[Rfam]
RNA sequence: AUCAGCGGGGAAAGAAGACCCUGUUGAGCUUGACUCUAGUUUGACAUUGUGAAAGGAUGUGGAGGGUGUAGUAUAGGGGGGAGCUUCGGCGCCCGUGAAAUACCCCCACCUCUUCUAUUCUUUUACUUACAGAGUGAAGGAACACCGGUCGAAAGACCUCCUUCAAGUAUAAACCUUCGGGUCAGUUCAGCUCUAGACAUCGUCUAAUGGGGAGUUUGGCUGGGGCGGCACAUCUGUUAAACAAUAACGCAGGUGUCCUAAGGGGGGCUCAUGGAGAACAGAAAUCUCCAGUAGAACAAAAGGGUAAAAGCCCCUUGAUUUUGAUUUUCAGUGUGAAUACAAACCAUGAAAGUGUGGCCUAUCGAUCCUUUAACACCCCGGAAUUUGGGGCUAGAGGUGCCAGAAAAGUUACCACAGGGAUAACUGGCUUGUGGCAGUCAAGCGUUCAUAGCGACAUUGCUUUUUGAUUCUUCGAUGUCGGCUCUUCCUAUCAUACCGAAGCAGAAUUCGGUAAGCGUUGGAUUGUUCACCCACUAAUAGGGAACGUGAGCUGGGUUUAGACCGUCGUGAGACAGGUUAGUUUUACCCUACUGAUGGUU
Number, nucleotide and partner (000 for none) at each position: 001a595002u594003c593004a592005g591006c000007g000008g589009g588010g587011a000012a584013a583014g000015a000016a000017g000018a000019c000020c418021c417022u416023g415024u000025u414026g413027a410028g409029c408030u407031u406032g000033a215034c214035u213036c212037u000038a000039g000040u207041u206042u000043g204044a203045c202046a000047u000048u000049g126050u125051g124052a123053a122054a121055g120056g119057a118058u117059g115060u000061g113062g112063a111064g110065g109066g000067u000068g000069u000070a000071g000072u000073a000074u000075a000076g107077g106078g105079g104080g103081g000082a000083g090084c089085u000086u000087c000088g000089g084090c083091g000092c000093c000094c000095g000096u000097g000098a000099a000100a000101u000102a000103c080104c079105c078106c077107c076108a000109c065110c064111u063112c062113u061114u000115c059116u000117a058118u057119u056120c055121u054122u053123u052124u051125a050126c049127u000128u000129a000130c000131a194132g193133a192134g191135u190136g000137a000138a000139g000140g000141a000142a000143c000144a000145c000146c000147g000148g000149u000150c000151g000152a000153a000154a000155g000156a000157c000158c000159u000160c000161c000162u000163u000164c000165a000166a000167g000168u000169a000170u000171a000172a000173a000174c000175c000176u000177u000178c000179g000180g000181g000182u000183c000184a000185g000186u000187u000188c000189a000190g135191c134192u133193c132194u131195a000196g000197a000198c000199a000200u000201c000202g045203u044204c043205u000206a041207a040208u000209g000210g000211g000212g036213a035214g034215u033216u000217u000218g231219g229220c228221u227222g000223g000224g000225g000226c000227g221228g220229c219230a000231c218232a254233u253234c252235u251236g250237u249238u000239a000240a000241a000242c000243a000244a000245u000246a000247a000248c000249g237250c236251a235252g234253g233254u232255g000256u000257c357258c356259u000260a000261a000262g000263g314264g000265g313266g312267g311268c310269u295270c294271a000272u290273g289274g288275a287276g286277a285278a000279c000280a000281g000282a000283a000284a000285u277286c276287u275288c274289c273290a272291g000292u000293a000294g270295a269296a305297c304298a000299a000300a000301a000302g000303g000304g297305u296306a000307a000308a000309a000310g268311c267312c266313c265314c263315u000316u000317g000318a000319u343320u342321u341322u000323g000324a338325u337326u336327u335328u000329c000330a000331g000332u000333g000334u000335g327336a326337a325338u324339a000340c000341a321342a320343a319344c000345c354346a000347u352348g000349a000350a000351a000352g347353u000354g345355u000356g258357g257358c000359c000360u000361a000362u000363c000364g000365a000366u000367c000368c396369u395370u394371u393372a392373a000374c000375a000376c390377c389378c388379c387380g000381g000382a000383a000384u000385u000386u000387g379388g378389g377390g376391c000392u372393a371394g370395a369396g368397g000398u000399g000400c000401c000402a000403g000404a000405a000406a031407a030408g029409u028410u027411a000412c000413c026414a025415c023416a022417g021418g020419g000420a000421u000422a000423a000424c000425u000426g000427g468428c000429u466430u000431g465432u000433g461434g460435c459436a458437g457438u456439c000440a000441a000442g452443c451444g000445u000446u000447c000448a000449u000450a000451g443452c442453g000454a000455c000456a438457u437458u436459g435460c434461u433462u000463u000464u000465u431466g429467a000468u427469u000470c000471u000472u000473c000474g000475a000476u000477g000478u000479c554480g552481g551482c550483u549484c546485u543486u542487c541488c540489u539490a000491u000492c517493a000494u000495a000496c511497c510498g509499a508500a507501g000502c000503a000504g000505a000506a000507u500508u499509c498510g497511g496512u000513a000514a000515g000516c000517g492518u000519u533520g532521g531522a000523u529524u000525g000526u000527u000528c000529a523530c000531c521532c520533a519534c000535u000536a000537a000538u000539a489540g488541g487542g486543a485544a000545c000546g484547u000548g000549a483550g482551c481552u480553g000554g479555g000556u000557u000558u000559a000560g578561a577562c576563c575564g573565u572566c571567g000568u000569g000570a000571g566572a565573c564574a000575g563576g562577u561578u560579a000580g000581u000582u000583u013584u012585a000586c000587c010588c009589u008590a000591c005592u004593g003594a002595u001596g000597g000598u000599u000